[Rfam]
RNA: Bacillaceae-1 RNA
Organism: Pontibacillus yanchengensis
RNA sequence: UCGUAAGGAAGUUCGAUUAAGACCGCUGCCUCACGCAGCAACAUCGAACCAACCCACGUCGUGUGGG
Numbered sequence: 001u002c003g004u005a006a007g008g009a010a011g012u013u014c015g016a017u018u019a020a021g022a023c024c025g026c027u028g029c030c031u032c033a034c035g036c037a038g039c040a041a042c043a044u045c046g047a048a049c050c051a052a053c054c055c056a057c058g059u060c061g062u063g064u065g066g067g
Base pairs, nucleotide, nucleotide: 011049012048013047014046015045016044017043025039026038027037028036029035053067054066055065056064057063